RNA: mir-34 microRNA precursor family
Organism: Capitella teleta
RNA sequence: GUUUCGCUGGCAGUGUGGUUAGCUGGUUGUGAAUUAAUAGAUACAACAACCACUAGCUCUACUGCCUGGGAAAU
Numbered sequence: 001g002u003u004u005c006g007c008u009g010g011c012a013g014u015g016u017g018g019u020u021a022g023c024u025g026g027u028u029g030u031g032a033a034u035u036a037a038u039a040g041a042u043a044c045a046a047c048a049a050c051c052a053c054u055a056g057c058u059c060u061a062c063u064g065c066c067u068g069g070g071a072a073a074u
Stems, first nucleotide, its partner, number of pairs: 002073004009066002012063004017058006024052007